[Rfam]
RNA sequence: AGUGAGUUUAGAGGUGCAAAGGUCAUCAGUACAUGAAUUGAGGAGUUUGAGCUCCUACGACAUUUGUGGAAAGGGGCAGUUGCCGAAGCAGCGAACAGCUCAAACGUUUGUUGUUGGGUCUGUAUUAAAUAAAUGCAGAACUGUCGUAUAGUCAAAAGACUAUAUGGAGGGCUAUCUCACGC
Numbered sequence: 001a002g003u004g005a006g007u008u009u010a011g012a013g014g015u016g017c018a019a020a021g022g023u024c025a026u027c028a029g030u031a032c033a034u035g036a037a038u039u040g041a042g043g044a045g046u047u048u049g050a051g052c053u054c055c056u057a058c059g060a061c062a063u064u065u066g067u068g069g070a071a072a073g074g075g076g077c078a079g080u081u082g083c084c085g086a087a088g089c090a091g092c093g094a095a096c097a098g099c100u101c102a103a104a105c106g107u108u109u110g111u112u113g114u115u116g117g118g119u120c121u122g123u124a125u126u127a128a129a130u131a132a133a134u135g136c137a138g139a140a141c142u143g144u145c146g147u148a149u150a151g152u153c154a155a156a157a158g159a160c161u162a163u164a165u166g167g168a169g170g171g172c173u174a175u176c177u178c179a180c181g182c
Base pairs, nucleotide, nucleotide: 006177009174010173011172016083017082018081019080022077023076024075032068033067034066035065036064037063038062087115088114089113090112091111092110093109094108095107096106116142117141119139120138121137122136123135124134125133126132144167145166146165147164148163149162150161
The family of this 182-nucleotide RNA sequence from Salipaludibacillus keqinensis is "Lysine riboswitch aptamer". Taxonomically the source falls in Salipaludibacillus (Bacteria, Bacilli, Caryophanales, Bacillaceae). Its family is annotated with lysine biosynthetic process in the Gene Ontology. Riboswitches are metabolite binding domains within certain messenger RNAs that serve as precision sensors for their corresponding targets. The base pairs follow the family's consensus structure, which is taken from published work. It scores 108 bits against the family's covariance model.